[Rfam]
RNA sequence: GACCUUGAACUCACUGCCGGGCCCAACUACCUUAGGGUUGCUCUUCGGAGCUAUGGACAUAAACGCGCUCGUAAUAAGCGGAUCGGACCCGGGGGCGGUACCCGGCGGCUCCACCAAACAUCCCGCGUUGGGGGAUCAUGGGGCCGAAACAGGAUCGACGAACGUCUAAAGGGGUUAGCUUUGUCCCGGCUGUCUGCCACCGUUACCGGCGAACAUAGUACAAUUGCCAACGACAAUCGUGCUCCGGUUGCAGUUGCUGCGUAAGCAGUAACAAGACCGAAAUCUAAGCCCUUGCACCUAGCAGUGUAAGGCGGGGUUCGCAGGCACCUGGCAACAGAAGCCUGCAUU
Number, nucleotide and partner (000 for none) at each position: 001g000002a000003c000004c000005u000006u000007g000008a000009a000010c000011u000012c000013a000014c000015u000016g000017c000018c000019g000020g000021g000022c000023c000024c000025a000026a000027c000028u000029a000030c000031c000032u000033u000034a000035g000036g000037g000038u000039u000040g051041c050042u049043c048044u000045u000046c000047g000048g043049a042050g041051c040052u000053a000054u000055g186056g185057a184058c183059a182060u000061a000062a000063a000064c000065g179066c178067g175068c174069u173070c172071g000072u000073a000074a000075u000076a000077a000078g000079c164080g163081g000082a000083u161084c160085g159086g000087a000088c000089c105090c104091g103092g102093g101094g000095g000096c000097g000098g000099u000100a000101c093102c092103c091104g090105g089106c146107g145108g144109c143110u142111c141112c140113a000114c000115c000116a000117a000118a000119c000120a000121u000122c000123c000124c000125g000126c000127g000128u000129u000130g000131g000132g000133g000134g000135a000136u000137c000138a000139u000140g112141g111142g110143g109144c108145c107146g106147a000148a000149a000150c000151a000152g000153g000154a000155u000156c000157g000158a000159c085160g084161a083162a000163c080164g079165u000166c000167u000168a000169a000170a000171g000172g070173g069174g068175u067176u000177a000178g066179c065180u000181u000182u059183g058184u057185c056186c055187c202188g201189g200190c000191u000192g000193u212194c211195u000196g210197c209198c208199a000200c189201c188202g187203u000204u000205a000206c000207c000208g198209g197210c196211g194212a193213a000214c000215a000216u000217a000218g000219u000220a000221c000222a000223a000224u000225u000226g000227c000228c000229a000230a000231c000232g000233a000234c000235a000236a000237u000238c000239g000240u000241g000242c000243u000244c000245c000246g000247g000248u000249u000250g000251c000252a000253g000254u000255u000256g000257c000258u000259g000260c000261g000262u000263a000264a000265g000266c000267a000268g000269u000270a000271a000272c000273a000274a000275g000276a000277c000278c000279g000280a000281a000282a000283u000284c000285u000286a000287a000288g000289c000290c000291c000292u000293u000294g000295c000296a000297c000298c000299u000300a000301g000302c000303a000304g000305u000306g000307u000308a000309a000310g000311g000312c000313g000314g329315g328316g327317u326318u000319c000320g345321c344322a343323g342324g341325c340326a317327c316328c315329u314330g000331g000332c000333a000334a000335c000336a000337g000338a000339a000340g325341c324342c323343u322344g321345c320346a000347u000348u000
Rfam assigns this 348-nucleotide RNA sequence from Marinibacterium profundimaris to the family "Alphaproteobacteria transfer-messenger RNA".
The family's consensus secondary structure is taken from published work.
By type it is a non-coding RNA gene.
Rfam describes the family as follows. Bacterial tmRNA, also known as 10Sa RNA or SsrA, is named for its dual tRNA and mRNA-like properties. Its role is to liberate the mRNA from a stalled ribosome. To accomplish this part of the tmRNA is used as a reading frame that ends in a translation stop signal.
A search with the family's covariance model found it, with a score of 292 bits.